[Rfam]
RNA: Eukaryotic large subunit ribosomal RNA, nucleotides 3309 to 3540
Organism: Medioppia subpectinata
RNA sequence: CGGCUCUUCCUAUCAUUGCGAAGCAGAAUUCGCCAAGCGUUGGAUUGUUCACCCACUAAAACCACAGGGAUAACUGGCUUGUGGCGGCCAAGCGUUCAUAGCGACGUCGCUUUUUGAUCCUUCGAUGUCGGCUCUUCCUAUCAUUGCGAAGCAGAAUUCGCCAAGCGUUGGAUUGUUCACCCACUAAUAGGGAACGUGAGCUGGGUUUAGACCGUCGUGAGACAGGUUAGUU
Numbered sequence: 001c002g003g004c005u006c007u008u009c010c011u012a013u014c015a016u017u018g019c020g021a022a023g024c025a026g027a028a029u030u031c032g033c034c035a036a037g038c039g040u041u042g043g044a045u046u047g048u049u050c051a052c053c054c055a056c057u058a059a060a061a062c063c064a065c066a067g068g069g070a071u072a073a074c075u076g077g078c079u080u081g082u083g084g085c086g087g088c089c090a091a092g093c094g095u096u097c098a099u100a101g102c103g104a105c106g107u108c109g110c111u112u113u114u115u116g117a118u119c120c121u122u123c124g125a126u127g128u129c130g131g132c133u134c135u136u137c138c139u140a141u142c143a144u145u146g147c148g149a150a151g152c153a154g155a156a157u158u159c160g161c162c163a164a165g166c167g168u169u170g171g172a173u174u175g176u177u178c179a180c181c182c183a184c185u186a187a188u189a190g191g192g193a194a195c196g197u198g199a200g201c202u203g204g205g206u207u208u209a210g211a212c213c214g215u216c217g218u219g220a221g222a223c224a225g226g227u228u229a230g231u232u
Base pairs, nucleotide, nucleotide: 001204002202003201004200005199006196007193008192009191010190011189014039018033019032020031021030022029041183042182043181045179210228211227212226213225214223215222216221